[Rfam]
The family of this 108-nucleotide RNA from Pantoea agglomerans is "RprA RNA".
The family's consensus secondary structure was predicted with PFOLD.
Lineage of the source: Bacteria > Pseudomonadati > Pseudomonadota > Gammaproteobacteria > Pantoea.
The family's RNA type in Rfam is small RNA.
Rfam describes the family as follows. Translational regulation of the stationary phase sigma factor RpoS is mediated by the formation of a double-stranded RNA stem-loop structure in the upstream region of the rpoS messenger RNA, occluding the translation initiation site.
RNA sequence: AUGUUCGAAAUCAACCUGAUGAUUUUCAGACAAUCUCAUUCCCCUGAGUAGAGUAAAGAAUUGCUGUGUGUAGUCUUUGCCCAUCCCCUGUGAUGGGCUUUUUUUUUG
Numbered sequence: 001a002u003g004u005u006c007g008a009a010a011u012c013a014a015c016c017u018g019a020u021g022a023u024u025u026u027c028a029g030a031c032a033a034u035c036u037c038a039u040u041c042c043c044c045u046g047a048g049u050a051g052a053g054u055a056a057a058g059a060a061u062u063g064c065u066g067u068g069u070g071u072a073g074u075c076u077u078u079g080c081c082c083a084u085c086c087c088c089u090g091u092g093a094u095g096g097g098c099u100u101u102u103u104u105u106u107u108g
Base pairs, nucleotide, nucleotide: 002021003020004019005018031046032045062070063069064068079098080097081096082095083094084093085092